[Rfam]
RNA sequence: AAAGUGUCAUACGCUACUGCCAUGGACUGGUUCAUUGCCGUAUGCUUUGCCUUU
Numbered sequence: 001a002a003a004g005u006g007u008c009a010u011a012c013g014c015u016a017c018u019g020c021c022a023u024g025g026a027c028u029g030g031u032u033c034a035u036u037g038c039c040g041u042a043u044g045c046u047u048u049g050c051c052u053u054u
Base pairs, nucleotide, nucleotide: 001054002053003052006051008049011046013045014044015042016041017040019038020037022035023034024033025032026031
RNA: Editing element of GABA-3 exon 9